The family of this 98-nucleotide RNA sequence is "DUF3800-V RNA".
[Rfam]
RNA sequence: AUUCAUGAGCGGUAAGACCGUUACAGAUUUCCAAGGUGUUCCCUCCCAUCGGUAGGCCACAGCUUUGGUGAAACAAAUCCGUAGGGCACGCUCUUUUU
Numbered sequence: 001a002u003u004c005a006u007g008a009g010c011g012g013u014a015a016g017a018c019c020g021u022u023a024c025a026g027a028u029u030u031c032c033a034a035g036g037u038g039u040u041c042c043c044u045c046c047c048a049u050c051g052g053u054a055g056g057c058c059a060c061a062g063c064u065u066u067g068g069u070g071a072a073a074c075a076a077a078u079c080c081g082u083a084g085g086g087c088a089c090g091c092u093c094u095u096u097u098u
Base pairs, nucleotide, nucleotide: 001098005094009091010090024081026079027078028077029076030075031068032067033066034065035064036063037062042056043055044054046052047051